[Rfam]
RNA sequence: UUUCCUGCUUGACUCCCACAUUUUCUCCUGAUAAUAGAUUUUAGUGGCUAUGCUUACAGAAUAGCUUAAAAUUGCCAUGAUCUGAAGAAAGAGGGUUUUUUGAUGACCUCCUCUAAUAUGAGAUGGCUGAACAGGGGGAA
Numbered sequence: 001u002u003u004c005c006u007g008c009u010u011g012a013c014u015c016c017c018a019c020a021u022u023u024u025c026u027c028c029u030g031a032u033a034a035u036a037g038a039u040u041u042u043a044g045u046g047g048c049u050a051u052g053c054u055u056a057c058a059g060a061a062u063a064g065c066u067u068a069a070a071a072u073u074g075c076c077a078u079g080a081u082c083u084g085a086a087g088a089a090a091g092a093g094g095g096u097u098u099u100u101u102g103a104u105g106a107c108c109u110c111c112u113c114u115a116a117u118a119u120g121a122g123a124u125g126g127c128u129g130a131a132c133a134g135g136g137g138g139a140a
Stems, first nucleotide, its partner, number of pairs: 005059003016047004074127004093114003
Small nucleolar RNA SNORA29: a 140-nucleotide sequence from Tupaia belangeri. Rfam classes the family as an H/ACA-box small nucleolar RNA. Clan: SNORA20 clan. Rfam describes the family as follows. ACA29 is a member of the H/ACA class of snoRNA that guide the sites of modification of uridines to pseudouridines. On this family, see Huttenhofer et al., EMBO J 2001: "RNomics: an experimental approach that identifies 201 candidates for novel, small, non-messenger RNAs in mouse".